[Rfam]
RNA sequence: UGGCGCCCAACGUGGGGCCUGGAUACGAGGGAAUCGGUGAGAAACGCUGCAAAGGACCGGCCGGUGUAUAAAGAGAAAACAGACAGAGCUACGGUCGGCGAAGGAACCUGCUUCACCGAAUCACUCUGGUAAGUUGCAGUGAUCAUGGGGCAAGAAAUAAGUCAGCAUGAAAUAUUUGUGGAACAGUUGAGAGAGGCGCUCAAGACGCGAGGAGUAAAGGUUAAAAUAAAGCAUCUUUUACAAUUUUUUGAUUUUAUAAAAGAGGUUUGCCCGU
Numbered sequence: 001u002g003g004c005g006c007c008c009a010a011c012g013u014g015g016g017g018c019c020u021g022g023a024u025a026c027g028a029g030g031g032a033a034u035c036g037g038u039g040a041g042a043a044a045c046g047c048u049g050c051a052a053a054g055g056a057c058c059g060g061c062c063g064g065u066g067u068a069u070a071a072a073g074a075g076a077a078a079a080c081a082g083a084c085a086g087a088g089c090u091a092c093g094g095u096c097g098g099c100g101a102a103g104g105a106a107c108c109u110g111c112u113u114c115a116c117c118g119a120a121u122c123a124c125u126c127u128g129g130u131a132a133g134u135u136g137c138a139g140u141g142a143u144c145a146u147g148g149g150g151c152a153a154g155a156a157a158u159a160a161g162u163c164a165g166c167a168u169g170a171a172a173u174a175u176u177u178g179u180g181g182a183a184c185a186g187u188u189g190a191g192a193g194a195g196g197c198g199c200u201c202a203a204g205a206c207g208c209g210a211g212g213a214g215u216a217a218a219g220g221u222u223a224a225a226a227u228a229a230a231g232c233a234u235c236u237u238u239u240a241c242a243a244u245u246u247u248u249u250g251a252u253u254u255u256a257u258a259a260a261a262g263a264g265g266u267u268u269g270c271c272c273g274u
Stems, first nucleotide, its partner, number of pairs: 006031003012026003036047001037045002084128005094121001095119002100114004134153004140148001141146001159200001161197003208250008218236004259274001262271001
Shown here is a 274-nucleotide RNA sequence from Orycteropus afer, a member of the family "Mason-Pfizer monkey virus packaging signal". The family has 9 seed sequences and 2,921 matches in Rfam 15.1. It scores 161 bits against the family's covariance model. About the family: This family represents a group of sequences that are related to the Mason-Pfizer monkey virus (MPMV) packaging signal. The packaging signal is located in the 5' UTR and is required for specific RNA encapsidation. For this family Rfam cites "Mutational analysis of the predicted secondary RNA structure of the Mason-Pfizer monkey virus packaging signal" (Mustafa et al., Virus Res, 2004).